[Rfam]
The record is a 195-nucleotide RNA from Pseudomonas sp. SDI, which matches "RgsA sRNA" in Rfam.
The base pairs follow the family's consensus structure, which was predicted with RNAalifold.
A search with the family's covariance model found it, with a score of 191 bits.
About the family: This small RNA (sRNA) was computationally identified in the genome of the opportunistic pathogen Pseudomonas aeruginosa and its expression verified by northern blot analysis. P16 sRNA appears to be conserved across several Pseudomonas species and Azotobacter vinelandii. In these species it is consistently located downstream of a predicted TatD deoxyribonuclease gene. P16 has a predicted Rho independent terminator at the 3' end but the function of P16 is unknown.
On this family, see Lu et al., Microbiology 2018: "RgsA, an RpoS-dependent sRNA, negatively regulates rpoS expression in Pseudomonas aeruginosa".
RNA sequence: CAGCAGCCGGCGACGUAUUCCAAAUCUGUUUAAAAAACGACCAGCCAGCAGUGGAAUCGCGGCAAUCCUGACCAAUACUUGAAUGUGUCGGUGCGACACACCCCCCAAGUGCGGCACCGAUAAAGACGACCAUGGACCGCUCGUCUUUGUUUUACUCCUAAUGGUCUUAACCCGGAUUCCCCCCCCAGAACCCGG
Numbered sequence: 001c002a003g004c005a006g007c008c009g010g011c012g013a014c015g016u017a018u019u020c021c022a023a024a025u026c027u028g029u030u031u032a033a034a035a036a037a038c039g040a041c042c043a044g045c046c047a048g049c050a051g052u053g054g055a056a057u058c059g060c061g062g063c064a065a066u067c068c069u070g071a072c073c074a075a076u077a078c079u080u081g082a083a084u085g086u087g088u089c090g091g092u093g094c095g096a097c098a099c100a101c102c103c104c105c106c107a108a109g110u111g112c113g114g115c116a117c118c119g120a121u122a123a124a125g126a127c128g129a130c131c132a133u134g135g136a137c138c139g140c141u142c143g144u145c146u147u148u149g150u151u152u153u154a155c156u157c158c159u160a161a162u163g164g165u166c167u168u169a170a171c172c173c174g175g176a177u178u179c180c181c182c183c184c185c186c187a188g189a190a191c192c193c194g195g
Base pairs, nucleotide, nucleotide: 039166040165041164042163043162087121088120089119090118092116093115097111098110099109122148123147124146125145126144127143128142129141130139172195173194174193175192177190178189179188